[Rfam]
This 35-nucleotide RNA sequence from Phyllostomus discolor belongs to the Rfam family "Iron response element I". For this family Rfam cites "Repression of Manduca sexta ferritin synthesis by IRP1/IRE interaction" (Zhang et al., Insect Mol Biol, 2001).

RNA sequence: UGGUUUCCUGUUUCAACAGUGUUUGAACAGAACCA
Numbered sequence: 001u002g003g004u005u006u007c008c009u010g011u012u013u014c015a016a017c018a019g020u021g022u023u024u025g026a027a028c029a030g031a032a033c034c035a
Base pairs, nucleotide, nucleotide: 001035002034003033004032005031007030010028012027013026014025015024016023017021